[Rfam]
The record is an 84-nucleotide RNA sequence from Cercocebus atys, which matches "mir-548 microRNA precursor family" in Rfam. Its family is annotated with RISC complex and miRNA-mediated post-transcriptional gene silencing in the Gene Ontology. Pairs were carried over by alignment from the consensus structure, which was predicted with WAR. NCBI's taxonomy places the organism under Eukaryota, Eumetazoa, Bilateria, Gnathostomata, Cercocebus. A search with the family's covariance model found it, with a score of 92 bits.

RNA sequence: UAUUAGGUGGGUGCAAAAGUAAUUUGUGCUUUUGCCAUUAAAAGUAAUGGCAAAAACAGAAAUUACUUUUGCACCUACCUAAUA
Number, nucleotide and partner (000 for none) at each position: 001u084002a083003u082004u081005a080006g079007g078008u077009g076010g075011g074012u073013g072014c071015a070016a069017a068018a067019g066020u065021a064022a063023u062024u061025u060026g000027u058028g057029c000030u055031u054032u053033u052034g051035c050036c049037a048038u047039u046040a045041a000042a000043a000044g000045u040046a039047a038048u037049g036050g035051c034052a033053a032054a031055a030056a000057c028058a027059g000060a025061a024062a023063u022064u021065a020066c019067u018068u017069u016070u015071g014072c013073a012074c011075c010076u009077a008078c007079c006080u005081a004082a003083u002084a001